[Rfam]
RNA sequence: GAUGGCAGUGACGACUUGGUAAUAUUCGAGCUCAACAGACCAAACCACAGGUCUAGCCUUUAGAGUUUGAUCUGUAUGCCGAUAAUCCCGCUGAACCGAGCCAUC
Numbered sequence: 001g002a003u004g005g006c007a008g009u010g011a012c013g014a015c016u017u018g019g020u021a022a023u024a025u026u027c028g029a030g031c032u033c034a035a036c037a038g039a040c041c042a043a044a045c046c047a048c049a050g051g052u053c054u055a056g057c058c059u060u061u062a063g064a065g066u067u068u069g070a071u072c073u074g075u076a077u078g079c080c081g082a083u084a085a086u087c088c089c090g091c092u093g094a095a096c097c098g099a100g101c102c103a104u105c
Stems, first nucleotide, its partner, number of pairs: 001105006